[Rfam]
RNA sequence: CGGGGGAGGCCGGAUCUUGGGCUGUGUCCCGGCGCCCUGUGCUCCCGGUCUGCGCUGUUGGAUUCGCGCUCCCAGCCGCGCAGCCCCCU
Numbered sequence: 001c002g003g004g005g006g007a008g009g010c011c012g013g014a015u016c017u018u019g020g021g022c023u024g025u026g027u028c029c030c031g032g033c034g035c036c037c038u039g040u041g042c043u044c045c046c047g048g049u050c051u052g053c054g055c056u057g058u059u060g061g062a063u064u065c066g067c068g069c070u071c072c073c074a075g076c077c078g079c080g081c082a083g084c085c086c087c088c089u
Stems, first nucleotide, its partner, number of pairs: 002088005009081002011078003016075002019072003023068004027062003030057006039050001041049003
RNA: mir-8799 microRNA precursor family